[Rfam]
RNA sequence: GCGUGGGAUGGGGAUGGGGCUCCCCGACACCGCCGUCAGGCUGAUAGCUCCUGCAACGCG
Numbered sequence: 001g002c003g004u005g006g007g008a009u010g011g012g013g014a015u016g017g018g019g020c021u022c023c024c025c026g027a028c029a030c031c032g033c034c035g036u037c038a039g040g041c042u043g044a045u046a047g048c049u050c051c052u053g054c055a056a057c058g059c060g
Stems, first nucleotide, its partner, number of pairs: 010025004016051006032041003
Background:
Fluoride riboswitch aptamer (crcB RNA motif): a 60-nucleotide RNA from Methylopila turkensis. Rfam links the family to the GO terms response to fluoride and positive regulation of gene expression. Taxonomically the source falls in Methylopila (Bacteria, Pseudomonadati, Alphaproteobacteria, Hyphomicrobiales).